Notes: A member of the RNA family "Small nucleolar RNA snoR53Y" from Solanum tuberosum, 82 nucleotides long. It is annotated as a C/D-box small nucleolar RNA. It scores 46 bits against the family's covariance model. For this family Rfam cites "Multiple snoRNA gene clusters from Arabidopsis" (Brown et al., RNA, 2001). The family is grouped with related families in Rfam's "snoR53 clan".
RNA sequence: UUUCCCUGUGAUGUAAAAAUGACCAUGCUAAUUCUGAAUCUUUUUUCUGAAGAAAAGCUUAAGUUAUUUAUCUGAGGGAGCA
Numbered sequence: 001u002u003u004c005c006c007u008g009u010g011a012u013g014u015a016a017a018a019a020u021g022a023c024c025a026u027g028c029u030a031a032u033u034c035u036g037a038a039u040c041u042u043u044u045u046u047c048u049g050a051a052g053a054a055a056a057g058c059u060u061a062a063g064u065u066a067u068u069u070a071u072c073u074g075a076g077g078g079a080g081c082a
Base pairs, nucleotide, nucleotide: 002080003079004078005077006076007075